Bacterial RNase P class B: a 387-nucleotide RNA from Spiroplasma platyhelix. Its family is annotated with ribonuclease P activity, tRNA processing and dimeric ribonuclease P complex in the Gene Ontology. Rfam describes the family as follows. Ribonuclease P (RNase P) is a ubiquitous endoribonuclease, found in archaea, bacteria and eukarya as well as chloroplasts and mitochondria. The family is grouped with related families in Rfam's "RNaseP clan".
[Rfam]
RNA sequence: AAGAAUGAGCUAAUUGCUGCAAAUGCCAAUUUGUAGAGGAAAGUCCACGCUCACACUUUCUGAAAUGAAAGUAAGGUUUGUGUUAAAGGAAAAAAUAACUUUAAGUAGUUUUUUCAAACUAACGGCUGACAAAAACCUAAGUCUUAAAUAAGUGAAAUUACUUAAGAUAAGGUUCUAGUCUGUAAAAGUGCCAUAGAGACGAGUGUUAAGGAAACUUAACAAGUGGAACGCGGUAAACCCCACAAGUGAGAAACCCAAAUUUUGGUAGGGGAAUUUAUUUUCUGAAAAAGAACAGAAAAUAAAAUUGGUUGGUUAGUUUAGUUAUUAACUAGCUGAUAGAUAAAUAAUUAGCACUUGCUUUGCAAGUACAGAACGUGGCUUAUGAUU
Numbered sequence: 001a002a003g004a005a006u007g008a009g010c011u012a013a014u015u016g017c018u019g020c021a022a023a024u025g026c027c028a029a030u031u032u033g034u035a036g037a038g039g040a041a042a043g044u045c046c047a048c049g050c051u052c053a054c055a056c057u058u059u060c061u062g063a064a065a066u067g068a069a070a071g072u073a074a075g076g077u078u079u080g081u082g083u084u085a086a087a088g089g090a091a092a093a094a095a096u097a098a099c100u101u102u103a104a105g106u107a108g109u110u111u112u113u114u115c116a117a118a119c120u121a122a123c124g125g126c127u128g129a130c131a132a133a134a135a136c137c138u139a140a141g142u143c144u145u146a147a148a149u150a151a152g153u154g155a156a157a158u159u160a161c162u163u164a165a166g167a168u169a170a171g172g173u174u175c176u177a178g179u180c181u182g183u184a185a186a187a188g189u190g191c192c193a194u195a196g197a198g199a200c201g202a203g204u205g206u207u208a209a210g211g212a213a214a215c216u217u218a219a220c221a222a223g224u225g226g227a228a229c230g231c232g233g234u235a236a237a238c239c240c241c242a243c244a245a246g247u248g249a250g251a252a253a254c255c256c257a258a259a260u261u262u263u264g265g266u267a268g269g270g271g272a273a274u275u276u277a278u279u280u281u282c283u284g285a286a287a288a289a290g291a292a293c294a295g296a297a298a299a300u301a302a303a304a305u306u307g308g309u310u311g312g313u314u315a316g317u318u319u320a321g322u323u324a325u326u327a328a329c330u331a332g333c334u335g336a337u338a339g340a341u342a343a344a345u346a347a348u349u350a351g352c353a354c355u356u357g358c359u360u361u362g363c364a365a366g367u368a369c370a371g372a373a374c375g376u377g378g379c380u381u382a383u384g385a386u387u
Base pairs, nucleotide, nucleotide: 004387005386006385008383009352010351011350012349013348014347015346017036018035019034020033021032022031041381042380043379045378046377047376048375049374050250051249052248053247054246055072056071057070058069059068060067078245079244080243081242082241083104084103085102086101087100088099105123106121107120108119109118110117111116124240125239128180129179130178134174135173136172137171141168142167143166144165145164146163147162188238189237190234191233192232204221205220206219207218208217209216210215254270255269256268274303275302276301277300278299279298280297304337305336306335307334308333309332310331311330312329313328314327315326316325317324354366355365356364357363358362